[Rfam]
RNA: Small nucleolar RNA R38
RNA sequence: AUUGCCGAAUGAUGACCAAGUUAUCCCUGGCAGAAAGCUUUUCUGUUGACAAUUCCUCGUUUCUGACGGCAGU
Dot-bracket structure: (((((((...........................................................)))))))